Rfam assigns this 54-nucleotide RNA sequence from Pelagibacterium lentulum to the family "sul1 RNA". The base pairs follow the family's consensus structure, which is taken from published work.
RNA sequence: AUCGGACUCGGCUUUGCCGGGUGGCUUCUCCGGGCGCCUAUCCCUCGGUAACCA
Numbered sequence: 001a002u003c004g005g006a007c008u009c010g011g012c013u014u015u016g017c018c019g020g021g022u023g024g025c026u027u028c029u030c031c032g033g034g035c036g037c038c039u040a041u042c043c044c045u046c047g048g049u050a051a052c053c054a
Stems, first nucleotide, its partner, number of pairs: 006022006030048005